[Rfam]
RNA: U4 spliceosomal RNA
Organism: Triplophysa tibetana
RNA sequence: AUUCUUUCGCAGAGGCAAUAUCGUAGCUCAUGAGGUUUAUCCGAGGCGUGAUCUUUGCUGGUUGAAAACUUUACCCAAUACCCCGCCGGGAUGACUGGUAAUACAGUCAUCCUUGGCAAUUUUUGCCUGUCUCUUAGGAGG
Numbered sequence: 001a002u003u004c005u006u007u008c009g010c011a012g013a014g015g016c017a018a019u020a021u022c023g024u025a026g027c028u029c030a031u032g033a034g035g036u037u038u039a040u041c042c043g044a045g046g047c048g049u050g051a052u053c054u055u056u057g058c059u060g061g062u063u064g065a066a067a068a069c070u071u072u073a074c075c076c077a078a079u080a081c082c083c084c085g086c087c088g089g090g091a092u093g094a095c096u097g098g099u100a101a102u103a104c105a106g107u108c109a110u111c112c113u114u115g116g117c118a119a120u121u122u123u124u125g126c127c128u129g130u131c132u133c134u135u136a137g138g139a140g141g
Base pairs, nucleotide, nucleotide: 020052021051022050023049024048026047027046028045034042035041085117086116087115088113089112090111091110092109093108094107095106096105097104130141131140132139133138